Overview
Rfam assigns this 266-nucleotide sequence from Amphibacillus marinus to the family "Bacterial large signal recognition particle RNA". Taxonomically the source falls in Amphibacillus (Bacteria, Bacilli, Caryophanales, Bacillaceae).

RNA sequence: CCGUGCUAGGUGGGAAGGUAGCGGUGUCCUGUACUCGCAAUCCGCUGUAGCGAGACUGAAUUCCCAUCUGAGGUGCACAAUAAUAAGGUCUGCCAUAAAGAAUUGGUGUUGAUGUUUGGGUCCCGCGCAAUGGGAGCCCGUGAACCCUGUCAGGUCCGGAAGGAAGCAGCAGUAAGCGGUUUUCUCUCGUGUGCCGCGGGGAAGCCUGAGCUGAGCCAUGCAUUUAUGUAACGCUUAGGGUUGUGCCAUCGAGGAUGGGUGCACGG
Numbered sequence: 001c002c003g004u005g006c007u008a009g010g011u012g013g014g015a016a017g018g019u020a021g022c023g024g025u026g027u028c029c030u031g032u033a034c035u036c037g038c039a040a041u042c043c044g045c046u047g048u049a050g051c052g053a054g055a056c057u058g059a060a061u062u063c064c065c066a067u068c069u070g071a072g073g074u075g076c077a078c079a080a081u082a083a084u085a086a087g088g089u090c091u092g093c094c095a096u097a098a099a100g101a102a103u104u105g106g107u108g109u110u111g112a113u114g115u116u117u118g119g120g121u122c123c124c125g126c127g128c129a130a131u132g133g134g135a136g137c138c139c140g141u142g143a144a145c146c147c148u149g150u151c152a153g154g155u156c157c158g159g160a161a162g163g164a165a166g167c168a169g170c171a172g173u174a175a176g177c178g179g180u181u182u183u184c185u186c187u188c189g190u191g192u193g194c195c196g197c198g199g200g201g202a203a204g205c206c207u208g209a210g211c212u213g214a215g216c217c218a219u220g221c222a223u224u225u226a227u228g229u230a231a232c233g234c235u236u237a238g239g240g241u242u243g244u245g246c247c248a249u250c251g252a253g254g255a256u257g258g259g260u261g262c263a264c265g266g
Stems, first nucleotide, its partner, number of pairs: 001266006009057003012030004017025001019023001034054005063259007072250004078243004084237004091230002095227005103220001105217003114211008122200006128191002131189005136181001138179004147172004155164003

A search with the family's covariance model found it, with a score of 216 bits.